RNA sequence: GUCGGGUACGGUGAUAUGGCGCCGAAAACGUACGUCGGCAUGUUCGUCGGAGCGCUCUGUGCGUUGGCGGGCGUGUUAACGAUCGCUCUUCCGGUGCCGGUCAUUGUCAGCAAC
Numbered sequence: 001g002u003c004g005g006g007u008a009c010g011g012u013g014a015u016a017u018g019g020c021g022c023c024g025a026a027a028a029c030g031u032a033c034g035u036c037g038g039c040a041u042g043u044u045c046g047u048c049g050g051a052g053c054g055c056u057c058u059g060u061g062c063g064u065u066g067g068c069g070g071g072c073g074u075g076u077u078a079a080c081g082a083u084c085g086c087u088c089u090u091c092c093g094g095u096g097c098c099g100g101u102c103a104u105u106g107u108c109a110g111c112a113a114c
Stems, first nucleotide, its partner, number of pairs: 001114002004111001008107004013102003018097001021095002037077004050062001
The record is a 114-nucleotide RNA sequence from Anopheles sinensis, which matches "Potassium channel RNA editing signal" in Rfam. The family's RNA type in Rfam is cis-regulatory element. Pairs were carried over by alignment from the consensus structure, which is taken from published work. Lineage of the source: Eukaryota > Bilateria > Allotriocarida > Anopheles > Myzorhynchus.